The record is a 115-nucleotide RNA sequence from Dreissena polymorpha, which matches "U5 spliceosomal RNA" in Rfam. A reference for the family is Zwieb (1997), "The uRNA database", Nucleic Acids Res. Gene Ontology terms of the family: spliceosomal tri-snRNP complex assembly and U5 snRNP. The family's consensus secondary structure is taken from published work.

[Rfam]
RNA sequence: AUGAAUAAAGUUUUAUGAAAAAGAAAAAAUCUUUCGCCUUUUACUAAAGAUUUCCGUGCAGUGGAACAUUCAAUGAGUCUAUAGACUUAUUUCUGAAGUCCUGUUAAUUCAGGAU
Numbered sequence: 001a002u003g004a005a006u007a008a009a010g011u012u013u014u015a016u017g018a019a020a021a022a023g024a025a026a027a028a029a030u031c032u033u034u035c036g037c038c039u040u041u042u043a044c045u046a047a048a049g050a051u052u053u054c055c056g057u058g059c060a061g062u063g064g065a066a067c068a069u070u071c072a073a074u075g076a077g078u079c080u081a082u083a084g085a086c087u088u089a090u091u092u093c094u095g096a097a098g099u100c101c102u103g104u105u106a107a108u109u110c111a112g113g114a115u
Base pairs, nucleotide, nucleotide: 003079004078006076010067011066012065013064014063015062016060017059019057027053028052029051030050031049032048033047034046097115099114100113101112102111103110